[Rfam]
RNA sequence: UUUUCAAUUACAGCGCCCGCUCCUGGUUUUUACGGCCAGGAGGACGAGGAGGGAGUUCAUCGAAAUUGUCGGCGGAUGCUCCCGGGCCGACCCGGUCCUCAGCUUUUAUCCUAAAAACCUGCAGGUAACUGCGGGCACAGAGGAGAGGGCAGGGUUAU
Numbered sequence: 001u002u003u004u005c006a007a008u009u010a011c012a013g014c015g016c017c018c019g020c021u022c023c024u025g026g027u028u029u030u031u032a033c034g035g036c037c038a039g040g041a042g043g044a045c046g047a048g049g050a051g052g053g054a055g056u057u058c059a060u061c062g063a064a065a066u067u068g069u070c071g072g073c074g075g076a077u078g079c080u081c082c083c084g085g086g087c088c089g090a091c092c093c094g095g096u097c098c099u100c101a102g103c104u105u106u107u108a109u110c111c112u113a114a115a116a117a118c119c120u121g122c123a124g125g126u127a128a129c130u131g132c133g134g135g136c137a138c139a140g141a142g143g144a145g146a147g148g149g150c151a152g153g154g155u156u157a158u
Base pairs, nucleotide, nucleotide: 020042021041022040023039024038025037026036027035051083052082053081054080055079060072061071062070063069084098085097086096087095088094089093104149105148106147107146109144110143118135119134120133121132122131123130124129

Shown here is a 158-nucleotide RNA from Halarsenatibacter silvermanii, a member of the family "glmS glucosamine-6-phosphate activated ribozyme aptamer". The source organism's lineage runs through Bacteria, Bacillati, Clostridia, Halanaerobiales and Halarsenatibacter. The family's consensus secondary structure is taken from published work. It scores 104 bits against the family's covariance model. Its family is annotated with catalytic activity and regulation of gene expression in the Gene Ontology.